[Rfam]
RNA sequence: GGCUGGUCUGAAAGUGAAUUACUUCAAAUGACUAUUCAAAAACACUAACAGACAGAAUUUCUUGUCAUACUCUCCUCCCUUCUCACAACCGCACUUGACUAGUCUUUA
Numbered sequence: 001g002g003c004u005g006g007u008c009u010g011a012a013a014g015u016g017a018a019u020u021a022c023u024u025c026a027a028a029u030g031a032c033u034a035u036u037c038a039a040a041a042a043c044a045c046u047a048a049c050a051g052a053c054a055g056a057a058u059u060u061c062u063u064g065u066c067a068u069a070c071u072c073u074c075c076u077c078c079c080u081u082c083u084c085a086c087a088a089c090c091g092c093a094c095u096u097g098a099c100u101a102g103u104c105u106u107u108a
Base pairs, nucleotide, nucleotide: 001104002103003102004101005100006099007098008097010096011095014092015091016084017083030072031071034068035067
Dot-bracket structure: ((((((((.((..((((............((..((...............................))..))..........))......))..))))))))))....